[Rfam]
Rfam assigns this 36-nucleotide RNA sequence from Ophiophagus hannah to the family "Iron response element I". It is annotated as a cis-regulatory element. The organism belongs to Ophiophagus, within Eukaryota. A search with the family's covariance model found it, with a score of 44 bits.

RNA sequence: GUGGUUCCUGCUUCAACAGUGAUUGGACGGAACCGA
Numbered sequence: 001g002u003g004g005u006u007c008c009u010g011c012u013u014c015a016a017c018a019g020u021g022a023u024u025g026g027a028c029g030g031a032a033c034c035g036a
Stems, first nucleotide, its partner, number of pairs: 003034006010028001012027005017021001
A reference for the family is Walden et al. (2006), "Structure of dual function iron regulatory protein 1 complexed with ferritin IRE-RNA", Science.